[Rfam]
RNA sequence: UGAGCGGUAUUGUAAAGCCUGGAUGACUCUGGUCACUCGUAGAGUGUCCUAGCUGUUCCUGAAAUGGAACGGGAACCGAAAGUAGACUGAAAUCCGAGCCCAGGGUGAGCCGCUCA
Numbered sequence: 001u002g003a004g005c006g007g008u009a010u011u012g013u014a015a016a017g018c019c020u021g022g023a024u025g026a027c028u029c030u031g032g033u034c035a036c037u038c039g040u041a042g043a044g045u046g047u048c049c050u051a052g053c054u055g056u057u058c059c060u061g062a063a064a065u066g067g068a069a070c071g072g073g074a075a076c077c078g079a080a081a082g083u084a085g086a087c088u089g090a091a092a093u094c095c096g097a098g099c100c101c102a103g104g105g106u107g108a109g110c111c112g113c114u115c116a
Base pairs, nucleotide, nucleotide: 001116002115003114004113005112006111007110010108011107012106018104019103020102021101022100027098028097029096034046035045036044037043038042053072054071055070056069057068058067059066
DUF3800-III RNA: a 116-nucleotide RNA. The sequence is in the family's curated seed alignment.